[Rfam]
Nucleotides: 080
Base pairs, nucleotide, nucleotide: 001075003073004072006070007069008068022042024040027037028036053067054066055065056064057063
Number, partner (000 for none) and nucleotide at each position: 001075a002000u003073a004072a005000u006070a007069a008068g009000u010000g011000u012000u013000g014000u015000g016000u017000u018000a019000a020000a021000c022042a023000a024040c025000c026000c027037a028036u029000u030000u031000c032000a033000u034000a035000a036028a037027u038000u039000u040024g041000c042022u043000u044000u045000c046000c047000g048000a049000g050000u051000a052000g053067c054066c055065c056064u057063u058000a059000a060000u061000u062000c063057a064056g065055g066054g067053g068008c069007u070006u071000u072004u073003u074000u075001u076000a077000u078000c079000u080000a

Description: The record is an 80-nucleotide sequence from Pseudactinobacillus ducreyi, which matches "Aggregatibacter sRNA 20" in Rfam. NCBI's taxonomy places the organism under Bacteria, Gammaproteobacteria, Pasteurellaceae, Pseudactinobacillus, Pseudactinobacillus ducreyi. The base pairs follow the family's consensus structure. It scores 65 bits against the family's covariance model. The family's RNA type in Rfam is small RNA. Validated by RT-PCR and Northern blot.